[Rfam]
The record is a 276-nucleotide sequence from Escovopsis weberi, which matches "A. fumigatus sRNA Afu_309" in Rfam. The base pairs follow the family's consensus structure, which was predicted with WAR. It scores 144 bits against the family's covariance model. The family's RNA type in Rfam is small RNA. Rfam 15.1 lists 663 matches to the family in 646 species. On this family, see Jochl et al., Nucleic Acids Res 2008: "Small ncRNA transcriptome analysis from Aspergillus fumigatus suggests a novel mechanism for regulation of protein synthesis".
RNA sequence: CUUCUCACCAAAUCACCGGAUCUGUGCCCAGCGGUCCUCUGCUUUUUGUCAGGGUCGAUUGCUGCGCAGCUCGAUAACUCCAUGGAGCCAUCUACUUGUUAUGGUGUCAAUUAUCCUAUCGACAGGUCCCAGAACGACCCGGCCUUGAGCUGCCUCAUUCGCCGUCUCACGAUGGCUUGAGUGAUGCGGCUGAUUGCUGGAGGCCCUAUAUUCCAACCCUCUUUUCCGAGGCCGUCGGCCCGUGAGGUUGGGGAAAACCAUGGGUUGCCUACAUUG
Numbered sequence: 001c002u003u004c005u006c007a008c009c010a011a012a013u014c015a016c017c018g019g020a021u022c023u024g025u026g027c028c029c030a031g032c033g034g035u036c037c038u039c040u041g042c043u044u045u046u047u048g049u050c051a052g053g054g055u056c057g058a059u060u061g062c063u064g065c066g067c068a069g070c071u072c073g074a075u076a077a078c079u080c081c082a083u084g085g086a087g088c089c090a091u092c093u094a095c096u097u098g099u100u101a102u103g104g105u106g107u108c109a110a111u112u113a114u115c116c117u118a119u120c121g122a123c124a125g126g127u128c129c130c131a132g133a134a135c136g137a138c139c140c141g142g143c144c145u146u147g148a149g150c151u152g153c154c155u156c157a158u159u160c161g162c163c164g165u166c167u168c169a170c171g172a173u174g175g176c177u178u179g180a181g182u183g184a185u186g187c188g189g190c191u192g193a194u195u196g197c198u199g200g201a202g203g204c205c206c207u208a209u210a211u212u213c214c215a216a217c218c219c220u221c222u223u224u225u226c227c228g229a230g231g232c233c234g235u236c237g238g239c240c241c242g243u244g245a246g247g248u249u250g251g252g253g254a255a256a257a258c259c260a261u262g263g264g265u266u267g268c269c270u271a272c273a274u275u276g
Base pairs, nucleotide, nucleotide: 018129019128020127021126022125023124024123025122026067027066029064030063031062033060034059035058036057037054038053039052040051041050042048075121077119079118083109084108085107087105088104089103142197143196150192152190153189154181155180156179157178161176162175163174164173165172166171202269203268204267205264206263207262208261209260218253219252220251221250226247227246230240231239232238233237
Dot-bracket structure: .................((((((((((.(((.((((((((((.....).)))))..)))).))).)).......(.(.(...(((.(((.............))).)))........)).)))))))))............((......(.((((((...((((((....)))))).)))).......)).)...))....((((((((........((((....((..((((...)))).....))..))))......)))))..))).......